RNA sequence: AUCUCCAUCUUACGAGGCAGCAUUGGAUGUCAUAUCCCUCUCUAAUACUGCCUGGUAAUGAUGAUGAU
Dot-bracket structure: .((..((((((((.((((((.((((((.............)))))).)))))).)))).))))..)).